Bacterial large subunit ribosomal RNA: a 264-nucleotide part of an RNA from an uncultured bacterium.

[Rfam]
RNA sequence: GGAGUCUUGAGGAAUUCUCUUCCUAGUACGAGAGGACCGGAAGAGGGGAGCCUCUGGUGUGCCAGUUAUUCCGCCAGGAGUAGCGCUGGGUAUCCAUGCUCCGAUAGGAUAAGCGCUGAAAGCAUCUAAGCGCCAAGCCAUCUCCAAGAUAAGGACUCCCAAUCAGUUUUUGGUUUAGAAGACCCCUCGAAGACUACGAGGUUGAUAGGCAGGAUGUGGAAGUCCCGUAAGGGAUUAAGCUGACCUGUACUAAUCGGUCGUUCG
Numbered sequence: 001g002g003a004g005u006c007u008u009g010a011g012g013a014a015u016u017c018u019c020u021u022c023c024u025a026g027u028a029c030g031a032g033a034g035g036a037c038c039g040g041a042a043g044a045g046g047g048g049a050g051c052c053u054c055u056g057g058u059g060u061g062c063c064a065g066u067u068a069u070u071c072c073g074c075c076a077g078g079a080g081u082a083g084c085g086c087u088g089g090g091u092a093u094c095c096a097u098g099c100u101c102c103g104a105u106a107g108g109a110u111a112a113g114c115g116c117u118g119a120a121a122g123c124a125u126c127u128a129a130g131c132g133c134c135a136a137g138c139c140a141u142c143u144c145c146a147a148g149a150u151a152a153g154g155a156c157u158c159c160c161a162a163u164c165a166g167u168u169u170u171u172g173g174u175u176u177a178g179a180a181g182a183c184c185c186c187u188c189g190a191a192g193a194c195u196a197c198g199a200g201g202u203u204g205a206u207a208g209g210c211a212g213g214a215u216g217u218g219g220a221a222g223u224c225c226c227g228u229a230a231g232g233g234a235u236u237a238a239g240c241u242g243a244c245c246u247g248u249a250c251u252a253a254u255c256g257g258u259c260g261u262u263c264g
Base pairs, nucleotide, nucleotide: 001159002158003157004156005155006154007153008152011145012144013143017045018044019043020042021041022040023039047102048101049100050099051098055096056095057094062089063088064087065086066085067082068081069080070079071078072077107139108138113133114132115131116130117129162174163173164172178261181259182258183257184256185201186200187199188198189197206252207251208250209248210247211246212245213244216240219236222235223234224233225232226231
Overview: Rfam 15.1 lists 51,934 matches to the family in 10,816 species.